[Rfam]
RNA: U4atac minor spliceosomal RNA
Organism: Drosophila virilis
RNA sequence: AUCUUCCUUGUCUUGGGGAGCAGAAAUGUCCAAUGAACGUCUAGUGAGGACAUUGCUGCUGACACCAAUGAUAUAACAAAAAACCCCCGUUCGCUGAUCUUCGAUCGGCGCUCGGAAUUUUUGGAAAU
Numbered sequence: 001a002u003c004u005u006c007c008u009u010g011u012c013u014u015g016g017g018g019a020g021c022a023g024a025a026a027u028g029u030c031c032a033a034u035g036a037a038c039g040u041c042u043a044g045u046g047a048g049g050a051c052a053u054u055g056c057u058g059c060u061g062a063c064a065c066c067a068a069u070g071a072u073a074u075a076a077c078a079a080a081a082a083a084c085c086c087c088c089g090u091u092c093g094c095u096g097a098u099c100u101u102c103g104a105u106c107g108g109c110g111c112u113c114g115g116a117a118u119u120u121u122u123g124g125a126a127a128u
Base pairs, nucleotide, nucleotide: 005019006018007017008016009015020059021058022057023056025054026053027052028051029050030049031048037045038044087115088114089113094108095107096106097105098104099103